[Rfam]
RNA sequence: GGCGCAAACUUGAAGUGGAGUUCAUUAGUAUGGUCAGCUGAUCCUGCCAAUCUACUCUACUUCAAAGUUGGGCCC
Numbered sequence: 001g002g003c004g005c006a007a008a009c010u011u012g013a014a015g016u017g018g019a020g021u022u023c024a025u026u027a028g029u030a031u032g033g034u035c036a037g038c039u040g041a042u043c044c045u046g047c048c049a050a051u052c053u054a055c056u057c058u059a060c061u062u063c064a065a066a067g068u069u070g071g072g073c074c075c
Stems, first nucleotide, its partner, number of pairs: 001074003005070003011064011025050002028047003032043004
The record is a 75-nucleotide RNA sequence from Haemonchus placei, which matches "mir-5928 microRNA precursor family" in Rfam. The family has 5 seed sequences and 1,672 matches in Rfam 15.1. Its family is annotated with miRNA-mediated post-transcriptional gene silencing and RISC complex in the Gene Ontology. The family's consensus secondary structure was predicted with RNAalifold.